[Rfam]
RNA sequence: UUCUUUCGGGUCUGUAGUUGCGGAGAGACGCGACGUCUUUCCAAGUCCAUGGCAGAUGCGGUCGAAAGGAUCCACGUAAGCGCGUGGGCAUUGCCCGCCGUGAGCAUGGCGUAUCCUAGAGGUAAGUCGCACCGCCCGCUGACAUUUUCGCGGCACGGACGCCGUGACGGGCGAGAGGGCUACUAGCGCAAGCGAACGCCCCGGUGCGCGAGUGUGGGGUCAAAGACUAGGUCAGUCGAAAGAG
Numbered sequence: 001u002u003c004u005u006u007c008g009g010g011u012c013u014g015u016a017g018u019u020g021c022g023g024a025g026a027g028a029c030g031c032g033a034c035g036u037c038u039u040u041c042c043a044a045g046u047c048c049a050u051g052g053c054a055g056a057u058g059c060g061g062u063c064g065a066a067a068g069g070a071u072c073c074a075c076g077u078a079a080g081c082g083c084g085u086g087g088g089c090a091u092u093g094c095c096c097g098c099c100g101u102g103a104g105c106a107u108g109g110c111g112u113a114u115c116c117u118a119g120a121g122g123u124a125a126g127u128c129g130c131a132c133c134g135c136c137c138g139c140u141g142a143c144a145u146u147u148u149c150g151c152g153g154c155a156c157g158g159a160c161g162c163c164g165u166g167a168c169g170g171g172c173g174a175g176a177g178g179g180c181u182a183c184u185a186g187c188g189c190a191a192g193c194g195a196a197c198g199c200c201c202c203g204g205u206g207c208g209c210g211a212g213u214g215u216g217g218g219g220u221c222a223a224a225g226a227c228u229a230g231g232u233c234a235g236u237c238g239a240a241a242g243a244g
Base pairs, nucleotide, nucleotide: 001244002243003242004241005240006239007238008237009236012235013234014233015229016228017227018226019225049215050214051213052062055115056114057113058112059111060110071109072108079101107222128208129207130206131205132204133173134172135171136170137169177201178200179199180198186193187192
This 244-nucleotide sequence belongs to the Rfam family "raiA RNA". It is one of the family's seed sequences. Rfam classes the family as a riboswitch.